[Rfam]
Description:
Shown here is a 285-nucleotide RNA sequence from Toxocara canis, a member of the family "Nuclear RNase P". From the family's description: Ribonuclease P (RNase P) is a ubiquitous endoribonuclease, found in archaea, bacteria and eukarya as well as chloroplasts and mitochondria. Its best characterised activity is the generation of mature 5'-ends of tRNAs by cleaving the 5'-leader elements of precursor-tRNAs. Its family is annotated with tRNA processing, ribonuclease P activity and ribonuclease P complex in the Gene Ontology.
Nucleotides: 285
Stems, first nucleotide, its partner, number of pairs: 001285004008278003015250002018247002021061005034049005070268005079227004089103005104120006121223002124220004141208003
Number, partner (000 for none) and nucleotide at each position: 001285g002284u003283u004282g005000g006000u007000g008278a009277g010276a011000a012000g013000a014000a015250a016249g017000c018247u019246u020000g021061a022060g023059g024058a025057g026000c027000g028000a029000c030000u031000c032000a033000c034049g035048g036047g037046u038045g039000c040000u041000c042000a043000g044000u045038c046037a047036c048035u049034c050000c051000a052000a053000u054000u055000a056000g057025c058024u059023c060022c061021u062000g063000g064000g065000a066000a067000g068000g069000u070268c071267u072266g073265a074264g075000a076000c077000a078000a079227g080226g081225u082224c083000g084000u085000u086000u087000a088000a089103c090102c091101u092100u093099c094000u095000a096000g097000c098000a099093g100092g101091g102090g103089g104120g105119u106118c107117g108116u109115g110000u111000a112000a113000u114000a115109c116108g117107c118106g119105a120104c121223a122222g123000g124220g125219c126218u127217g128000u129000a130000c131000g132000a133000g134000a135000a136000a137000a138000g139000g140000c141208c142207g143206a144000u145000a146000g147000c148000c149000a150000c151000a152000c153000g154000c155000g156000u157000g158000a159000c160000g161000c162000a163000a164000g165000a166000u167000g168000g169000g170000u171000g172000g173000g174000a175000g176000a177000a178000c179000u180000g181000c182000c183000c184000g185000g186000a187000c188000g189000u190000u191000u192000g193000g194000u195000g196000u197000g198000u199000g200000u201000g202000g203000c204000u205000g206143u207142c208141g209000u210000u211000u212000g213000g214000a215000g216000a217127c218126g219125g220124u221000g222122c223121u224082g225081g226080u227079c228000g229000g230000c231000g232000g233000u234000g235000c236000u237000g238000a239000g240000u241000g242000c243000g244000a245000u246019a247018g248000c249016u250015u251000g252000u253000g254000g255000u256000a257000a258000a259000c260000u261000c262000a263000a264074u265073u266072c267071a268070g269000a270000c271000u272000a273000c274000u275000c276010u277009c278008u279000c280000g281000c282004c283003a284002a285001c